Notes: The family of this 179-nucleotide sequence from Oryza sativa is "MIR807 microRNA precursor family". Pairs were carried over by alignment from the consensus structure, which was predicted with WAR. Gene Ontology terms of the family: RISC complex and miRNA-mediated post-transcriptional gene silencing. The organism belongs to Oryza sativa, within Eukaryota.
[Rfam]
RNA sequence: AACCACACUAUCGAUGAAUAGAUUGACUUGUGAUAUGAUGACGUGGUUGUUUCAUCUAGUACGAGGACGUAACAUCAUAUUAAUUUCGUGCGAUGGCUGGUAAUAGGAUGUCAUGUCCUCGUCCUAGGUGAAACAGCCACAUCAUCUCGCGGGUGAAUCUAUACAUCGAUAGUGUGACC
Numbered sequence: 001a002a003c004c005a006c007a008c009u010a011u012c013g014a015u016g017a018a019u020a021g022a023u024u025g026a027c028u029u030g031u032g033a034u035a036u037g038a039u040g041a042c043g044u045g046g047u048u049g050u051u052u053c054a055u056c057u058a059g060u061a062c063g064a065g066g067a068c069g070u071a072a073c074a075u076c077a078u079a080u081u082a083a084u085u086u087c088g089u090g091c092g093a094u095g096g097c098u099g100g101u102a103a104u105a106g107g108a109u110g111u112c113a114u115g116u117c118c119u120c121g122u123c124c125u126a127g128g129u130g131a132a133a134c135a136g137c138c139a140c141a142u143c144a145u146c147u148c149g150c151g152g153g154u155g156a157a158u159c160u161a162u163a164c165a166u167c168g169a170u171a172g173u174g175u176g177a178c179c
Base pairs, nucleotide, nucleotide: 004176005175006174007173009171010170011169012168013167014166015165018162019161021159022158023157024156026154027153028152030150031149032148033147035145036144037143038142039141044139045138046137047136048135049134050133051132054129055128057126058125061122066117067116068115072111073110074109075108076107078105079104080103081102082101089100